[Rfam]
This 88-nucleotide RNA sequence from Arenimonas maotaiensis belongs to the Rfam family "Glycine riboswitch aptamer". Rfam describes the family as follows. This family represents the bacterial glycine riboswitch.

RNA sequence: CGAUGCCGUGCGGGAGAGACUGGAACCGCCCAGCGCCGAAGGAGCAACCGCCCCGGAAACUCUCAGGCCAAAGGACCGUACGGCGUCC
Numbered sequence: 001c002g003a004u005g006c007c008g009u010g011c012g013g014g015a016g017a018g019a020c021u022g023g024a025a026c027c028g029c030c031c032a033g034c035g036c037c038g039a040a041g042g043a044g045c046a047a048c049c050g051c052c053c054c055g056g057a058a059a060c061u062c063u064c065a066g067g068c069c070a071a072a073g074g075a076c077c078g079u080a081c082g083g084c085g086u087c088c
Stems, first nucleotide, its partner, number of pairs: 006083008020033004035068003038064002042062003048056002
A search with the family's covariance model found it, with a score of 70 bits.
The base pairs follow the family's consensus structure.